[Rfam]
RNA sequence: CGACCAUCCCGAGCGGCCGAGAGACCUGGCUCAGCGACGCCGCAGCAACCACCCGCGCACUCCAGCGCGGGCCGGUGCUACCGCCAGGACCGAUGGAGG
Dot-bracket structure: (..(((((....(((((...(((..[[[[)))......)))))((((.((.((((((........))))))..))))))...(]]]]...))))))..)
Annotation: Rfam assigns this 99-nucleotide RNA sequence from Quadrisphaera granulorum to the family "SAM riboswitch aptamer (S box leader)". Rfam links the family to the GO term regulation of gene expression. Taxonomically the source falls in Quadrisphaera (Bacteria, Bacillati, Kineosporiales, Kineosporiaceae). The match comes from Rfam's covariance-model search (47 bits).